Rfam assigns this 81-nucleotide sequence from Panthera tigris to the family "Small nucleolar RNA Z168/Z174".
By type it is a C/D-box small nucleolar RNA.
The family's consensus secondary structure was predicted with PFOLD.
Its family is annotated with RNA processing and nucleolus in the Gene Ontology.

RNA sequence: GGGUCAAUGAUGAGAACUCAUAUGGUCUUGAACAGAGAUGAUGACAUAAAAAUCAUGCUUAAUAAGAUUACACUGAGGCCC
Numbered sequence: 001g002g003g004u005c006a007a008u009g010a011u012g013a014g015a016a017c018u019c020a021u022a023u024g025g026u027c028u029u030g031a032a033c034a035g036a037g038a039u040g041a042u043g044a045c046a047u048a049a050a051a052a053u054c055a056u057g058c059u060u061a062a063u064a065a066g067a068u069u070a071c072a073c074u075g076a077g078g079c080c081c
Stems, first nucleotide, its partner, number of pairs: 002080004